[Rfam]
RNA sequence: ACGACCGGAUCGAACCCGUUGCGAAUCGAACUUGGUUUGAGUUCGAGCAGCGGGUCGAUCCGAGCCA
Numbered sequence: 001a002c003g004a005c006c007g008g009a010u011c012g013a014a015c016c017c018g019u020u021g022c023g024a025a026u027c028g029a030a031c032u033u034g035g036u037u038u039g040a041g042u043u044c045g046a047g048c049a050g051c052g053g054g055u056c057g058a059u060c061c062g063a064g065c066c067a
Base pairs, nucleotide, nucleotide: 003065006062007061008060009059010058011057012056013055015054016053017052018051019050020049021048022047026046027045028044029043030042031041032040033039
RNA: mir-2518 microRNA precursor family
Organism: Drosophila pseudoobscura